[Rfam]
RNA sequence: GAAGCAAGGGAAGCCCACAGUAGAGGUCACGUCCUGAGUGUUCAUCACUCCUUGCCAAUACCUUGGGAAAGGUCUGAGAUAAGUCUCAAUCACCAUCCUUGCAGGGUGUUACCUGAUGCAGGCGAGGAAGUUACCAGGCAUGUGGUUCAGGCAGUGACAGAGAGCAGGAGAAGCAGGCUCAGUGCUGUGGAUGCAGUUACUGCCUGGAAUGGGAAAGGCUUCUGGCUGGUUGGGUGAGCUCAAUGUGUGGGAUGGGAUAAGGAAUCUCACAACCCAAUUCAGGCUACUUUCCUACCAC
Numbered sequence: 001g002a003a004g005c006a007a008g009g010g011a012a013g014c015c016c017a018c019a020g021u022a023g024a025g026g027u028c029a030c031g032u033c034c035u036g037a038g039u040g041u042u043c044a045u046c047a048c049u050c051c052u053u054g055c056c057a058a059u060a061c062c063u064u065g066g067g068a069a070a071g072g073u074c075u076g077a078g079a080u081a082a083g084u085c086u087c088a089a090u091c092a093c094c095a096u097c098c099u100u101g102c103a104g105g106g107u108g109u110u111a112c113c114u115g116a117u118g119c120a121g122g123c124g125a126g127g128a129a130g131u132u133a134c135c136a137g138g139c140a141u142g143u144g145g146u147u148c149a150g151g152c153a154g155u156g157a158c159a160g161a162g163a164g165c166a167g168g169a170g171a172a173g174c175a176g177g178c179u180c181a182g183u184g185c186u187g188u189g190g191a192u193g194c195a196g197u198u199a200c201u202g203c204c205u206g207g208a209a210u211g212g213g214a215a216a217g218g219c220u221u222c223u224g225g226c227u228g229g230u231u232g233g234g235u236g237a238g239c240u241c242a243a244u245g246u247g248u249g250g251g252a253u254g255g256g257a258u259a260a261g262g263a264a265u266c267u268c269a270c271a272a273c274c275c276a277a278u279u280c281a282g283g284c285u286a287c288u289u290u291c292c293u294a295c296c297a298c
Stems, first nucleotide, its partner, number of pairs: 001298001004295001009292003014251006023064004036050005074282005082227004094108005109125002112122003126223007146208003253269006
RNA: Nuclear RNase P
Organism: Chiloscyllium punctatum